[Rfam]
RNA sequence: UUAGUUGCAAAUGCGGUGUCAUCAAGAUUCACAUUGACUUUGAGCUGUAAAUGAGAAUCUUGAUGAUGCUGCAUUGGCAAAUAC
Numbered sequence: 001u002u003a004g005u006u007g008c009a010a011a012u013g014c015g016g017u018g019u020c021a022u023c024a025a026g027a028u029u030c031a032c033a034u035u036g037a038c039u040u041u042g043a044g045c046u047g048u049a050a051a052u053g054a055g056a057a058u059c060u061u062g063a064u065g066a067u068g069c070u071g072c073a074u075u076g077g078c079a080a081a082u083a084c
Stems, first nucleotide, its partner, number of pairs: 010075021032053004
A member of the RNA family "mir-172 microRNA precursor family" from Striga asiatica, 84 nucleotides long. mir-172 has been experimentally verified in Arabidopsis thaliana. Taxonomically the source falls in Striga (Eukaryota, Euphyllophyta, Spermatophyta, Pentapetalae). A reference for the family is Mette et al. (2002), "Short RNAs can identify new candidate transposable element families in Arabidopsis", Plant Physiol. Rfam 15.1 lists 2,076 matches to the family in 219 species.